[Rfam]
RNA sequence: GCACCUUUGCCUACACUCUGGCCUUUAUCAUUAUUCCAGGAUAAUGUGCCUAUUUUGAUGCAAAGAAGAUCGAGCCUGACACGCUACUCACCACGGCAUUCUUUACCUUCAUGGUUGCAGUGGUCCAUUCCAAAUGAUGUCUACAA
Numbered sequence: 001g002c003a004c005c006u007u008u009g010c011c012u013a014c015a016c017u018c019u020g021g022c023c024u025u026u027a028u029c030a031u032u033a034u035u036c037c038a039g040g041a042u043a044a045u046g047u048g049c050c051u052a053u054u055u056u057g058a059u060g061c062a063a064a065g066a067a068g069a070u071c072g073a074g075c076c077u078g079a080c081a082c083g084c085u086a087c088u089c090a091c092c093a094c095g096g097c098a099u100u101c102u103u104u105a106c107c108u109u110c111a112u113g114g115u116u117g118c119a120g121u122g123g124u125c126c127a128u129u130c131c132a133a134a135u136g137a138u139g140u141c142u143a144c145a146a
Base pairs, nucleotide, nucleotide: 007063008062009061020050021049022048023046025044026043027042028041078141079140080139081138091123092122093121094120096118097117098116101114102113
Rfam assigns this 146-nucleotide RNA sequence from Cladophialophora chaetospira to the family "Small nucleolar RNA snR80".
Clan: SNORA28 clan.
The base pairs follow the family's consensus structure, which was predicted with WAR.
The match comes from Rfam's covariance-model search (54 bits).